[Rfam]
RNA: Bacterial RNase P class A
Organism: Kushneria sinocarnis
RNA sequence: GGAGUCGGCCGGACAGUCGCUGCCGAACCCGCAGGGUUCGGGGGAGGAAAGUCCGGGCUCCGCAGGGCAGGAUGCCAGGUAACCCCUGGGCGGCGCGAGCCGACGGAAAGUGCAGCAGAGAGUAGACCGCCCAAGCAGCGCAUGGCGCUGCCGGCAAGGGUGAAAGGGUGCGGUAAGAGCGCACCGCACGCCUGGCAACAGGUCGUGGCAAGGUAAACCCCAUCCGGAGCAAGACCGAAUAGGAACCCGAUGGUGUGGCCCGCACCGGGUUCGGGUAGGUUGCUUGAGGCAUUCGGUGACGAAUGUCCCAGAGGAAUGACUGUCCUCGACAGAACCCGGCUUACAGGCCGACUCCCUCC
Numbered sequence: 001g002g003a004g005u006c007g008g009c010c011g012g013a014c015a016g017u018c019g020c021u022g023c024c025g026a027a028c029c030c031g032c033a034g035g036g037u038u039c040g041g042g043g044g045a046g047g048a049a050a051g052u053c054c055g056g057g058c059u060c061c062g063c064a065g066g067g068c069a070g071g072a073u074g075c076c077a078g079g080u081a082a083c084c085c086c087u088g089g090g091c092g093g094c095g096c097g098a099g100c101c102g103a104c105g106g107a108a109a110g111u112g113c114a115g116c117a118g119a120g121a122g123u124a125g126a127c128c129g130c131c132c133a134a135g136c137a138g139c140g141c142a143u144g145g146c147g148c149u150g151c152c153g154g155c156a157a158g159g160g161u162g163a164a165a166g167g168g169u170g171c172g173g174u175a176a177g178a179g180c181g182c183a184c185c186g187c188a189c190g191c192c193u194g195g196c197a198a199c200a201g202g203u204c205g206u207g208g209c210a211a212g213g214u215a216a217a218c219c220c221c222a223u224c225c226g227g228a229g230c231a232a233g234a235c236c237g238a239a240u241a242g243g244a245a246c247c248c249g250a251u252g253g254u255g256u257g258g259c260c261c262g263c264a265c266c267g268g269g270u271u272c273g274g275g276u277a278g279g280u281u282g283c284u285u286g287a288g289g290c291a292u293u294c295g296g297u298g299a300c301g302a303a304u305g306u307c308c309c310a311g312a313g314g315a316a317u318g319a320c321u322g323u324c325c326u327c328g329a330c331a332g333a334a335c336c337c338g339g340c341u342u343a344c345a346g347g348c349c350g351a352c353u354c355c356c357u358c359c
Stems, first nucleotide, its partner, number of pairs: 001355010011344001012324007020044002023041006049342003053339005058229004065261004070225005075089005090104001091102004105220002110218002112214002127159002129155003135151006167185006186209001187207004192201003233281004243272006252266005288307008